[Rfam]
RNA sequence: UGUCGGAGGGAGAAUUUGGCUAGACUUUAACUUGCAUAUUAGUCAGUCUUUUUCUCUCUCCUAUA
Numbered sequence: 001u002g003u004c005g006g007a008g009g010g011a012g013a014a015u016u017u018g019g020c021u022a023g024a025c026u027u028u029a030a031c032u033u034g035c036a037u038a039u040u041a042g043u044c045a046g047u048c049u050u051u052u053u054c055u056c057u058c059u060c061c062u063a064u065a
Stems, first nucleotide, its partner, number of pairs: 001065003005061004010056004018048004024043003

Notes: Shown here is a 65-nucleotide RNA sequence from Eumeta japonica, a member of the family "mir-14 microRNA precursor family". For this family Rfam cites "Direct sequencing and expression analysis of a large number of miRNAs in Aedes aegypti and a multi-species survey of novel mosquito miRNAs" (Li et al., BMC Genomics, 2009). The family's consensus secondary structure was predicted with RNAalifold. Taxonomically the source falls in Eumeta (Eukaryota, Pancrustacea, Altocrustacea, Heteroneura).